Notes: The record is a 117-nucleotide sequence from Actinoallomurus iriomotensis, which matches "Actinobacteria sRNA Ms_IGR-7" in Rfam. Pairs were carried over by alignment from the consensus structure. Lineage of the source: Bacteria > Bacillati > Actinomycetota > Actinomycetes > Actinoallomurus.
[Rfam]
RNA sequence: GAGAGGUACCUGUCCGGGCGGAUUGUUGCCAGCGUGAAGAACUCCCAUCAUCCCAGGUCGGAGGGUACCUCUCCUUAUUUCAAGGCGUACGCGUCAAAUUCGGCUCGGUGGAUCCAG
Numbered sequence: 001g002a003g004a005g006g007u008a009c010c011u012g013u014c015c016g017g018g019c020g021g022a023u024u025g026u027u028g029c030c031a032g033c034g035u036g037a038a039g040a041a042c043u044c045c046c047a048u049c050a051u052c053c054c055a056g057g058u059c060g061g062a063g064g065g066u067a068c069c070u071c072u073c074c075u076u077a078u079u080u081c082a083a084g085g086c087g088u089a090c091g092c093g094u095c096a097a098a099u100u101c102g103g104c105u106c107g108g109u110g111g112a113u114c115c116a117g
Stems, first nucleotide, its partner, number of pairs: 002072010013061001015060003019056001020054002024050002027047001031043002098113005
The family has 14 seed sequences and 463 matches in Rfam 15.1. For this family Rfam cites "Identification of small RNAs in Mycobacterium smegmatis using heterologous Hfq" (Li et al., RNA, 2013).